A member of the RNA family "Bacterial large subunit ribosomal RNA" from Conexibacter woesei, 451 nucleotides of a longer RNA. Rfam's curators put it in the seed alignment. The family's consensus secondary structure is taken from published work.
[Rfam]
RNA sequence: CUCUCCGAAAUAUAUUUAGGUAUAGCCUCGGAUCAAUUGCGUAUUGGCCGUAGAGCACUGUUUGGACGCGGGGCCCUACCAGGUUACCAACUUCAGGCAAACUCCGAAGACCAGUACGUUUACUCCGGGAGUCAGUUGCUGGGGGAUAAACUUCAGCGUCAAGAGGGAAACAGCCCAGACCGCCAGCUAAGGUCCCCAAAUGCUAGCUAAGUGGCAAACGAUGUUCGAGUGCAUAGACAACCAGGAGGUUGGCUUAGAGGCAGCCACCCUUGAAAGAGUGCGUAACAGCUCACUGGUCAAGUGUUCGAGCGCGGAUAAUGUAACGGGGCUUAAGCUAGCUACCGAAGCUGCGGGUGCGUGAGACUUUCGAGUCGAUCGCGCGGUAGGAGAGCGUUCCGAUGCCAGUAAAGCGGCGGGGUAACCCAGCCGUGGAGGCUUCGGAAGUGAGAAU
Numbered sequence: 001c002u003c004u005c006c007g008a009a010a011u012a013u014a015u016u017u018a019g020g021u022a023u024a025g026c027c028u029c030g031g032a033u034c035a036a037u038u039g040c041g042u043a044u045u046g047g048c049c050g051u052a053g054a055g056c057a058c059u060g061u062u063u064g065g066a067c068g069c070g071g072g073g074c075c076c077u078a079c080c081a082g083g084u085u086a087c088c089a090a091c092u093u094c095a096g097g098c099a100a101a102c103u104c105c106g107a108a109g110a111c112c113a114g115u116a117c118g119u120u121u122a123c124u125c126c127g128g129g130a131g132u133c134a135g136u137u138g139c140u141g142g143g144g145g146a147u148a149a150a151c152u153u154c155a156g157c158g159u160c161a162a163g164a165g166g167g168a169a170a171c172a173g174c175c176c177a178g179a180c181c182g183c184c185a186g187c188u189a190a191g192g193u194c195c196c197c198a199a200a201u202g203c204u205a206g207c208u209a210a211g212u213g214g215c216a217a218a219c220g221a222u223g224u225u226c227g228a229g230u231g232c233a234u235a236g237a238c239a240a241c242c243a244g245g246a247g248g249u250u251g252g253c254u255u256a257g258a259g260g261c262a263g264c265c266a267c268c269c270u271u272g273a274a275a276g277a278g279u280g281c282g283u284a285a286c287a288g289c290u291c292a293c294u295g296g297u298c299a300a301g302u303g304u305u306c307g308a309g310c311g312c313g314g315a316u317a318a319u320g321u322a323a324c325g326g327g328g329c330u331u332a333a334g335c336u337a338g339c340u341a342c343c344g345a346a347g348c349u350g351c352g353g354g355u356g357c358g359u360g361a362g363a364c365u366u367u368c369g370a371g372u373c374g375a376u377c378g379c380g381c382g383g384u385a386g387g388a389g390a391g392c393g394u395u396c397c398g399a400u401g402c403c404a405g406u407a408a409a410g411c412g413g414c415g416g417g418g419u420a421a422c423c424c425a426g427c428c429g430u431g432g433a434g435g436c437u438u439c440g441g442a443a444g445u446g447a448g449a450a451u
Stems, first nucleotide, its partner, number of pairs: 001391006011024005026131001027129006038122001039119009053105001054103002059099003063095004070088002072085004135160001137158008165176003180353004185349003191343003200340001202339006219313002223310010240297005246270003251265003271275001276291001280289002354381005392446001394443006401436003410430005415424003